[Rfam]
RNA sequence: UGAAACCUUCGGGGCCAGGUGAGGCGGCAAUCCGCCAAUUCCUGACCGGCGGUAAUCUCGAACGAGGAGCCCGCGAGCCGAAAGGCAGGAGUCCGGUGAGAUUCCGGCGCCGACAGUAUAGUCUGGAUGGGAGAAGGGUAGG
Numbered sequence: 001u002g003a004a005a006c007c008u009u010c011g012g013g014g015c016c017a018g019g020u021g022a023g024g025c026g027g028c029a030a031u032c033c034g035c036c037a038a039u040u041c042c043u044g045a046c047c048g049g050c051g052g053u054a055a056u057c058u059c060g061a062a063c064g065a066g067g068a069g070c071c072c073g074c075g076a077g078c079c080g081a082a083a084g085g086c087a088g089g090a091g092u093c094c095g096g097u098g099a100g101a102u103u104c105c106g107g108c109g110c111c112g113a114c115a116g117u118a119u120a121g122u123c124u125g126g127a128u129g130g131g132a133g134a135a136g137g138g139u140a141g142g
Base pairs, nucleotide, nucleotide: 004139006137007136008135009134010133017043018042019041045122046121047112048111049074050073051072052071069110070109077086078085079084091108093107094106095105096104114125115124116123
Rfam assigns this 142-nucleotide sequence from Sulfobacillus acidophilus to the family "FMN riboswitch aptamer (RFN element)". The base pairs follow the family's consensus structure, which is taken from published work. Rfam links the family to the GO term FMN binding. Rfam's curators write: The RFN element is a highly conserved domain that is found frequently in the 5'-untranslated regions of prokaryotic mRNAs that encode for flavin mononucleotide (FMN) biosynthesis and transport proteins. It scores 90 bits against the family's covariance model. Taxonomically the source falls in Sulfobacillus acidophilus (Bacteria, Bacillota, Clostridia, Eubacteriales).